A member of the RNA family "Pistol ribozyme" from Erysipelotrichaceae bacterium 2_2_44A, 64 nucleotides long. On this family, see Teplova et al., Angew Chem Int Ed Engl 2020: "Crucial Roles of Two Hydrated Mg(2+) Ions in Reaction Catalysis of the Pistol Ribozyme". Rfam's curators put it in the seed alignment.
[Rfam]
RNA sequence: GAUCGACUAGACGAUUAAAAACAGGUGUUAGGUCUAGUGCGGCAGGGUUCUUCCCUGCGUCACA
Numbered sequence: 001g002a003u004c005g006a007c008u009a010g011a012c013g014a015u016u017a018a019a020a021a022c023a024g025g026u027g028u029u030a031g032g033u034c035u036a037g038u039g040c041g042g043c044a045g046g047g048u049u050c051u052u053c054c055c056u057g058c059g060u061c062a063c064a
Stems, first nucleotide, its partner, number of pairs: 001016004006038006025063003032040001042058006